[Rfam]
RNA: tRNA
Organism: Candidatus Kinetoplastidibacterium crithidiae
RNA sequence: CGGGGUGUAGCGCAGCCUGGUAGCGUGCUUGCAUGGGGUGCAAGUGGUCGUGAGUUCGAAUCCCACCGUCCCGA
Numbered sequence: 001c002g003g004g005g006u007g008u009a010g011c012g013c014a015g016c017c018u019g020g021u022a023g024c025g026u027g028c029u030u031g032c033a034u035g036g037g038g039u040g041c042a043a044g045u046g047g048u049c050g051u052g053a054g055u056u057c058g059a060a061u062c063c064c065a066c067c068g069u070c071c072c073g074a
Stems, first nucleotide, its partner, number of pairs: 001073007010026004028044005050066003054062001